[Rfam]
RNA sequence: AAACGUUCUCAGGGCGGGGUGUAAGUCCCCACCGGCGGUAAAGUCUUAGACUCAGCCCGCGAGCGCUUGCUUCCCCAGCAAGGUCAGCAGAUUUGGUGAAAAGCCAAAGCCGACGGUUAUAGUCCGGAUGAGAGAGAGCGGGA
Numbered sequence: 001a002a003a004c005g006u007u008c009u010c011a012g013g014g015c016g017g018g019g020u021g022u023a024a025g026u027c028c029c030c031a032c033c034g035g036c037g038g039u040a041a042a043g044u045c046u047u048a049g050a051c052u053c054a055g056c057c058c059g060c061g062a063g064c065g066c067u068u069g070c071u072u073c074c075c076c077a078g079c080a081a082g083g084u085c086a087g088c089a090g091a092u093u094u095g096g097u098g099a100a101a102a103g104c105c106a107a108a109g110c111c112g113a114c115g116g117u118u119a120u121a122g123u124c125c126g127g128a129u130g131a132g133a134g135a136g137a138g139c140g141g142g143a
Stems, first nucleotide, its partner, number of pairs: 004140007017029003031123002033112002035060004055110002063088002092108005114126003
Dot-bracket structure: ...(((((((......(((.......))).[[((((((................[[))))..((......................))...(((((.......)))))]])).(((.....]]))).......)))))))...